[Rfam]
The record is a 121-nucleotide RNA from Mycoavidus cysteinexigens, which matches "Group II catalytic intron D1-D4-2" in Rfam. The base pairs follow the family's consensus structure. The organism belongs to Mycoavidus, within Bacteria. From the family's description: Group II introns are found in rRNA, tRNA and mRNA of organelles in fungi, plants and protists, and also in mRNA in bacteria. On this family, see Lehmann and Schmidt, Crit Rev Biochem Mol Biol 2003: "Group II introns: structure and catalytic versatility of large natural ribozymes".
RNA sequence: GAAGGUAGGCCCUUCGGAGUCAGCUUGUAGGGGCGGGCUUCAAACAGCCGUAAGCUGCUUCAGAUCGAAAGACUGCGGUGGUGAACGUUACGGUCAAAAGUCGAGGCUGGACCUCGGCAUG
Numbered sequence: 001g002a003a004g005g006u007a008g009g010c011c012c013u014u015c016g017g018a019g020u021c022a023g024c025u026u027g028u029a030g031g032g033g034c035g036g037g038c039u040u041c042a043a044a045c046a047g048c049c050g051u052a053a054g055c056u057g058c059u060u061c062a063g064a065u066c067g068a069a070a071g072a073c074u075g076c077g078g079u080g081g082u083g084a085a086c087g088u089u090a091c092g093g094u095c096a097a098a099a100g101u102c103g104a105g106g107c108u109g110g111a112c113c114u115c116g117g118c119a120u121g
Base pairs, nucleotide, nucleotide: 001015002014003013004012005011016041017040018039019038020037021036023034024033025032026031045121046120048093049092050091051090052089053088054082055081057079058078059077061075062074063073100118101117102116103115104114105113